Shown here is a 212-nucleotide sequence from Solanum tuberosum, a member of the family "Plant small nucleolar RNA U3".
It scores 101 bits against the family's covariance model.
Small nucleolar RNAs (snoRNAs) are involved in the processing and modification of rRNA in the nucleolus.
The base pairs follow the family's consensus structure, which is taken from published work.
A reference for the family is Zwieb (1997), "The uRNA database", Nucleic Acids Res.

RNA sequence: ACGAUCUUACUUGAACAAGAUUUGUUCUAUAAGCUUGUAGUAUUGUAUCUUUGAGUUUAAGAAGACAAGAAAUCAAGCCUGGUGGAUGAAUCAUGUCACUAGACCCAGAGUGUUUGGGUCCUAGUGCUGUCGAUGAUCGUUUUCAGCAUCGUAGAUCAUUUCUUAGCACCCAUGGUUGGUGCUAAGAUGGUCUAGUGGUUCUUUAACAAAUU
Numbered sequence: 001a002c003g004a005u006c007u008u009a010c011u012u013g014a015a016c017a018a019g020a021u022u023u024g025u026u027c028u029a030u031a032a033g034c035u036u037g038u039a040g041u042a043u044u045g046u047a048u049c050u051u052u053g054a055g056u057u058u059a060a061g062a063a064g065a066c067a068a069g070a071a072a073u074c075a076a077g078c079c080u081g082g083u084g085g086a087u088g089a090a091u092c093a094u095g096u097c098a099c100u101a102g103a104c105c106c107a108g109a110g111u112g113u114u115u116g117g118g119u120c121c122u123a124g125u126g127c128u129g130u131c132g133a134u135g136a137u138c139g140u141u142u143u144c145a146g147c148a149u150c151g152u153a154g155a156u157c158a159u160u161u162c163u164u165a166g167c168a169c170c171c172a173u174g175g176u177u178g179g180u181g182c183u184a185a186g187a188u189g190g191u192c193u194a195g196u197g198g199u200u201c202u203u204u205a206a207c208a209a210a211u212u
Stems, first nucleotide, its partner, number of pairs: 001038002003035001005033001007031001013027006043068004048063001050061004077211001080208002096198008105190003109160004124149006132141003162186009